RNA sequence: GGCACGGAUACUGCAUAUGCUAGGGCGGAGCUUCGGGCAACGUCAUGUCCGGGGGAGUCGACACAGCAGUCGACGUCACGCUUU
Dot-bracket structure: ..............................(((((((((......)))))))))..((((((......))))))..........

The record is an 84-nucleotide sequence from Xanthomonas vesicatoria, which matches "rpfG RNA" in Rfam. Taxonomically the source falls in Xanthomonas vesicatoria (Bacteria, Pseudomonadati, Gammaproteobacteria, Lysobacteraceae). Rfam classes the family as a small RNA.